[Rfam]
RNA sequence: UCGCGCGGAUCGCCUAAUCCUCACGGAGCCGGGGACCCACUUACCCCGGGGUGAAUCGGCCUCAGGGCCGUAGGAGACCGCCCUCUCCGAACCCGUCAGCUAACCCGGUCGGCGAAGGGACGGAAAGGA
Numbered sequence: 001u002c003g004c005g006c007g008g009a010u011c012g013c014c015u016a017a018u019c020c021u022c023a024c025g026g027a028g029c030c031g032g033g034g035a036c037c038c039a040c041u042u043a044c045c046c047c048g049g050g051g052u053g054a055a056u057c058g059g060c061c062u063c064a065g066g067g068c069c070g071u072a073g074g075a076g077a078c079c080g081c082c083c084u085c086u087c088c089g090a091a092c093c094c095g096u097c098a099g100c101u102a103a104c105c106c107g108g109u110c111g112g113c114g115a116a117g118g119g120a121c122g123g124a125a126a127g128g129a
Base pairs, nucleotide, nucleotide: 011114012113013112014111018027019026020025028109029108030107031106032105033104038048049094050093051092057070058069059068060067073088074087075086076085
RNA: c-di-AMP riboswitch aptamer (ydaO/yuaA leader)
Organism: Streptacidiphilus fuscans